[Rfam]
Overview: The record is a 587-nucleotide part of an RNA, which matches "Bacterial large subunit ribosomal RNA" in Rfam. It scores 2645 bits against the family's covariance model. Its family is annotated with ribosome and structural constituent of ribosome in the Gene Ontology.
RNA sequence: CGCGCAGAAGGACGGAAAGACCCCGAGACCUUCACUAUAGUUUGGUAUUGGUGUUCGGUGUGGCUUGUGUAGAAUAGGUGGGAGACUGUGAAGCUAGCACGCUAGUGGUAGUGGAGUCGUUGUGUGAAAUACCACUCUGGUCAUAGUGAACAUCUAACUUCGGACCGUGAUCCGGUUCAGGGACAGUGCCUGAUGGGUAGUUUAACUGGGGCGGUUGCCUCCUAAAUGGUAACGGAGGCGCCCAAAGGUUCCCUCAGCCUGGUUGGCAAUCAGGUGUUGAGUGUAAGUGCACAAGGGAGCUUGACUGUGAGACUGGCAGGUCGAGCAGGAACGAAAGUUGGGACUAGUGAUCCGGCGACUCGUUGUGGAACGGUCGUCGCUCAACGGAUAAAAGGUACCUCGGGGAUAACAGGCUUAUCUUGCCCAAGAGUUCAUAUCGACGGCAUGGUUUGGCACCUCGAUGUCGGCUCGUCGCAUCCUGGGGCUGGAGUUGGUCCCAAGGGUUGGGCUGUUCGCCCAUUAAAGCGGUACGCGAGCUGGGUUCAGAACGUCGUGAGACAGUUCGGUCCCUAUCCUCUGCGCGCGGU
Numbered sequence: 001c002g003c004g005c006a007g008a009a010g011g012a013c014g015g016a017a018a019g020a021c022c023c024c025g026a027g028a029c030c031u032u033c034a035c036u037a038u039a040g041u042u043u044g045g046u047a048u049u050g051g052u053g054u055u056c057g058g059u060g061u062g063g064c065u066u067g068u069g070u071a072g073a074a075u076a077g078g079u080g081g082g083a084g085a086c087u088g089u090g091a092a093g094c095u096a097g098c099a100c101g102c103u104a105g106u107g108g109u110a111g112u113g114g115a116g117u118c119g120u121u122g123u124g125u126g127a128a129a130u131a132c133c134a135c136u137c138u139g140g141u142c143a144u145a146g147u148g149a150a151c152a153u154c155u156a157a158c159u160u161c162g163g164a165c166c167g168u169g170a171u172c173c174g175g176u177u178c179a180g181g182g183a184c185a186g187u188g189c190c191u192g193a194u195g196g197g198u199a200g201u202u203u204a205a206c207u208g209g210g211g212c213g214g215u216u217g218c219c220u221c222c223u224a225a226a227u228g229g230u231a232a233c234g235g236a237g238g239c240g241c242c243c244a245a246a247g248g249u250u251c252c253c254u255c256a257g258c259c260u261g262g263u264u265g266g267c268a269a270u271c272a273g274g275u276g277u278u279g280a281g282u283g284u285a286a287g288u289g290c291a292c293a294a295g296g297g298a299g300c301u302u303g304a305c306u307g308u309g310a311g312a313c314u315g316g317c318a319g320g321u322c323g324a325g326c327a328g329g330a331a332c333g334a335a336a337g338u339u340g341g342g343a344c345u346a347g348u349g350a351u352c353c354g355g356c357g358a359c360u361c362g363u364u365g366u367g368g369a370a371c372g373g374u375c376g377u378c379g380c381u382c383a384a385c386g387g388a389u390a391a392a393a394g395g396u397a398c399c400u401c402g403g404g405g406a407u408a409a410c411a412g413g414c415u416u417a418u419c420u421u422g423c424c425c426a427a428g429a430g431u432u433c434a435u436a437u438c439g440a441c442g443g444c445a446u447g448g449u450u451u452g453g454c455a456c457c458u459c460g461a462u463g464u465c466g467g468c469u470c471g472u473c474g475c476a477u478c479c480u481g482g483g484g485c486u487g488g489a490g491u492u493g494g495u496c497c498c499a500a501g502g503g504u505u506g507g508g509c510u511g512u513u514c515g516c517c518c519a520u521u522a523a524a525g526c527g528g529u530a531c532g533c534g535a536g537c538u539g540g541g542u543u544c545a546g547a548a549c550g551u552c553g554u555g556a557g558a559c560a561g562u563u564c565g566g567u568c569c570c571u572a573u574c575c576u577c578u579g580c581g582c583g584c585g586g587u
Base pairs, nucleotide, nucleotide: 001583002582003581004580005579006578007577008576010575011574012573014570015569022404023403024402025401026400027399028396029395030394031393032392034201035200036199037198041193042192044190045189046188047187050154051153052152053151054150055149056148057147059145060144061143062142063141064140065139067137077136078135079134080133081132084118085117086116093112094111095110096109098107099106100105158181159180160179162178163177164176165175166174167173204216205215206214207213217239218238219237220236221235222234240385242342243341248300249299250298251297252296253295254280255279257275258274259273260272261271262270281290282289305328306327307326308325311322312321313320330339331338332337353379354378355377356376357375358374359373361372362371413454414453415452417451418448419447421445422444423443424442428438429437465540466538467537468536469535470532471529472528473527474526475525478503479502481498482497483496484495485494486493505519506518507517508516509515546564547563548562549561550559551558552557